[Rfam]
RNA sequence: CUGGCCUCCAGGGCCUUGUACACCCUAGGCUUUCAUUCAUUGCACAUCCAGUGAAGGCCUACUGUGUGCCAGGCCCUCGGCGAC
Numbered sequence: 001c002u003g004g005c006c007u008c009c010a011g012g013g014c015c016u017u018g019u020a021c022a023c024c025c026u027a028g029g030c031u032u033u034c035a036u037u038c039a040u041u042g043c044a045c046a047u048c049c050a051g052u053g054a055a056g057g058c059c060u061a062c063u064g065u066g067u068g069c070c071a072g073g074c075c076c077u078c079g080g081c082g083a084c
Base pairs, nucleotide, nucleotide: 010077011076012075013074014073015072016071018069019068020067021066022065023064026061027060028059029058030057031056032055033054034053035052036051037050